Shown here is a 125-nucleotide RNA, a member of the family "DUF3800-I RNA".
RNA sequence: UAGUAGCACAGGUAUAUGAUACACUGUUCAAACAUCUAUCCAGACAAUCAUAGCGAUUAAGCAUAAAGUAAGUACGUUGUCAAUAGUUGGGAAGCCUUAAUGUGUUAAGGCUUUUUCUUUUUCAA
Numbered sequence: 001u002a003g004u005a006g007c008a009c010a011g012g013u014a015u016a017u018g019a020u021a022c023a024c025u026g027u028u029c030a031a032a033c034a035u036c037u038a039u040c041c042a043g044a045c046a047a048u049c050a051u052a053g054c055g056a057u058u059a060a061g062c063a064u065a066a067a068g069u070a071a072g073u074a075c076g077u078u079g080u081c082a083a084u085a086g087u088u089g090g091g092a093a094g095c096c097u098u099a100a101u102g103u104g105u106u107a108a109g110g111c112u113u114u115u116u117c118u119u120u121u122u123c124a125a
Stems, first nucleotide, its partner, number of pairs: 008027004012022003033089002036086003043081004047057003061077002064074002090115010